ODC internal ribosome entry site (IRES): a 150-nucleotide RNA sequence from Choloepus hoffmanni.
Pairs were carried over by alignment from the consensus structure, which was predicted with mfold.
NCBI's taxonomy places the organism under Eukaryota, Teleostomi, Sarcopterygii, Amniota, Choloepus.
[Rfam]
RNA sequence: GUUUCCACUGCUGCACCAAGGGCACAAGUCUUAUUCAGCAGGAUUUGGGAUUCCUGGAGAACUGUUUUCAUGAAAAGUCAGAAAUAAUUUCUUUAUAUUCCAUCUCUUAGUUUUCUGUUUUGUUGCAUUUCAGAGGAACAUCAAGAAACC
Numbered sequence: 001g002u003u004u005c006c007a008c009u010g011c012u013g014c015a016c017c018a019a020g021g022g023c024a025c026a027a028g029u030c031u032u033a034u035u036c037a038g039c040a041g042g043a044u045u046u047g048g049g050a051u052u053c054c055u056g057g058a059g060a061a062c063u064g065u066u067u068u069c070a071u072g073a074a075a076a077g078u079c080a081g082a083a084a085u086a087a088u089u090u091c092u093u094u095a096u097a098u099u100c101c102a103u104c105u106c107u108u109a110g111u112u113u114u115c116u117g118u119u120u121u122g123u124u125g126c127a128u129u130u131c132a133g134a135g136g137a138a139c140a141u142c143a144a145g146a147a148a149c150c
Stems, first nucleotide, its partner, number of pairs: 006081001010078003016072001019068006040055004088148006098138004